This 164-nucleotide RNA sequence from Bifidobacterium choloepi belongs to the Rfam family "FMN riboswitch aptamer (RFN element)". The organism belongs to Bifidobacterium, within Bacteria. A search with the family's covariance model found it, with a score of 81 bits. Rfam describes the family as follows. The RFN element is a highly conserved domain that is found frequently in the 5'-untranslated regions of prokaryotic mRNAs that encode for flavin mononucleotide (FMN) biosynthesis and transport proteins.

RNA sequence: UGCAAGUUUCAGGGAAGGUGCAAUUCCUUACUGGCGGUAACGGCGUCCCCGGCAGACAACGGGGCAGGCGCCGCAGCCCGCGACCCGCGGCGGUCCAGUCCGUCGCGGCCGAUCCGGUGCGAGACCGGAGCCAACGGUGACAGUCCGGAUGGAAGAAACAAGGA
Numbered sequence: 001u002g003c004a005a006g007u008u009u010c011a012g013g014g015a016a017g018g019u020g021c022a023a024u025u026c027c028u029u030a031c032u033g034g035c036g037g038u039a040a041c042g043g044c045g046u047c048c049c050c051g052g053c054a055g056a057c058a059a060c061g062g063g064g065c066a067g068g069c070g071c072c073g074c075a076g077c078c079c080g081c082g083a084c085c086c087g088c089g090g091c092g093g094u095c096c097a098g099u100c101c102g103u104c105g106c107g108g109c110c111g112a113u114c115c116g117g118u119g120c121g122a123g124a125c126c127g128g129a130g131c132c133a134a135c136g137g138u139g140a141c142a143g144u145c146c147g148g149a150u151g152g153a154a155g156a157a158a159c160a161a162g163g164a
Stems, first nucleotide, its partner, number of pairs: 003162001006159005016028003030144002032133002034081004085108004113129005135147003